[Rfam]
RNA sequence: GUCGGUCCUCGGUAGUGGCCCCCGGGCUCGCGGGUCGGCACGUCCGACGGCGAGGCGUGGGCCUCGAUCGAAGACCUCC
Number, nucleotide and partner (000 for none) at each position: 001g079002u000003c000004g076005g075006u074007c073008c000009u071010c070011g069012g068013u067014a000015g000016u000017g063018g062019c061020c060021c059022c000023c057024g056025g000026g000027c054028u053029c052030g051031c000032g000033g000034g000035u000036c000037g000038g000039c000040a000041c000042g000043u000044c000045c000046g000047a000048c000049g000050g000051c030052g029053a028054g027055g000056c024057g023058u000059g021060g020061g019062c018063c017064u000065c000066g000067a013068u012069c011070g010071a009072a000073g007074a006075c005076c004077u000078c000079c001
RNA: Actino-pnp RNA
Organism: Miniimonas arenae